RNA sequence: AUGGGCGUCUUACCAGACACGGUUAGAUCUGGACCCUUCUGUCUAAUACUGUCUGGUAAUACCGUCCGU
Number, nucleotide and partner (000 for none) at each position: 001a000002u068003g067004g066005g065006c064007g063008u000009c000010u059011u058012a057013c056014c055015a054016g053017a052018c051019a050020c000021g000022g047023u046024u045025a044026g043027a042028u000029c000030u000031g000032g000033a000034c000035c000036c000037u000038u000039c000040u000041g000042u027043c026044u025045a024046a023047u022048a000049c000050u019051g018052u017053c016054u015055g014056g013057u012058a011059a010060u000061a000062c000063c007064g006065u005066c004067c003068g002069u000
mir-8/mir-141/mir-200 microRNA precursor family: a 69-nucleotide RNA from Microcebus murinus.
Its Rfam clan is "mir-8 microRNA precursor clan".
For this family Rfam cites "Identification of novel genes coding for small expressed RNAs" (Lagos-Quintana et al., Science, 2001).
Pairs were carried over by alignment from the consensus structure, which was predicted with RNAalifold.
Its family is annotated with RISC complex and miRNA-mediated post-transcriptional gene silencing in the Gene Ontology.